RNA sequence: CACACGAAAAGGCAAAAUCAUCUAAAGAUGGUGACGCAAAACUUAGGGGCUACCGUCAUUCAUUGACCAUGCCAGCCAGUUAUCGAC
Numbered sequence: 001c002a003c004a005c006g007a008a009a010a011g012g013c014a015a016a017a018u019c020a021u022c023u024a025a026a027g028a029u030g031g032u033g034a035c036g037c038a039a040a041a042c043u044u045a046g047g048g049g050c051u052a053c054c055g056u057c058a059u060u061c062a063u064u065g066a067c068c069a070u071g072c073c074a075g076c077c078a079g080u081u082a083u084c085g086a087c
Stems, first nucleotide, its partner, number of pairs: 012037002017032006040081004046077002048073003055067004
RNA: c-di-GMP-I riboswitch aptamer
Organism: Litchfieldia stipae